[Rfam]
Shown here is a 137-nucleotide sequence from Gulo gulo, a member of the family "Small nucleolar RNA SNORA58". Rfam links the family to the GO terms nucleolus and RNA processing. The family's consensus secondary structure was predicted with PFOLD. The match comes from Rfam's covariance-model search (142 bits). A reference for the family is Huttenhofer et al. (2001), "RNomics: an experimental approach that identifies 201 candidates for novel, small, non-messenger RNAs in mouse", EMBO J. Clan: SNORA44 clan. ACA52 is a member of the H/ACA class of snoRNA that guide the sites of modification of uridines to pseudouridines.
RNA sequence: GGGCAUACCCGUAGACCUCGUCUGACUGUGCCUGUGGCCAGGCGAGGGGGACAGUGUGUGCGAGAGUAACUUGGAGUUGGUGCCAGCUCUAACCAGCUGAAUCGGUGGCUGGGUAGAUUGCAGCACUCCCAACACUG
Numbered sequence: 001g002g003g004c005a006u007a008c009c010c011g012u013a014g015a016c017c018u019c020g021u022c023u024g025a026c027u028g029u030g031c032c033u034g035u036g037g038c039c040a041g042g043c044g045a046g047g048g049g050g051a052c053a054g055u056g057u058g059u060g061c062g063a064g065a066g067u068a069a070c071u072u073g074g075a076g077u078u079g080g081u082g083c084c085a086g087c088u089c090u091a092a093c094c095a096g097c098u099g100a101a102u103c104g105g106u107g108g109c110u111g112g113g114u115a116g117a118u119u120g121c122a123g124c125a126c127u128c129c130c131a132a133c134a135c136u137g
Base pairs, nucleotide, nucleotide: 003061004060005059006058007057008056016047017046018045019044020043021042022041023040024039073129074128075127076126078125081122082121083120093112094111095110096109097108